[Rfam]
RNA sequence: CAUCAGGGCAUCUAGGGUUCCGGUCCCAUAUUGGGAUGUCUGGUCCGAGAGUUGCCCGGUCUCGGUUGGCCGGGACUCCACGGAGGGAUAAAAGCCCGGGAGGU
Numbered sequence: 001c002a003u004c005a006g007g008g009c010a011u012c013u014a015g016g017g018u019u020c021c022g023g024u025c026c027c028a029u030a031u032u033g034g035g036a037u038g039u040c041u042g043g044u045c046c047g048a049g050a051g052u053u054g055c056c057c058g059g060u061c062u063c064g065g066u067u068g069g070c071c072g073g074g075a076c077u078c079c080a081c082g083g084a085g086g087g088a089u090a091a092a093a094g095c096c097c098g099g100g101a102g103g104u
Stems, first nucleotide, its partner, number of pairs: 007056004012051001015046002020043002022040001023037006058077008079099001081102001085097003
Rfam assigns this 104-nucleotide sequence from Sulfuriferula sp. AH1 to the family "Guanidine-I riboswitch aptamer".
The base pairs follow the family's consensus structure.
It scores 89 bits against the family's covariance model.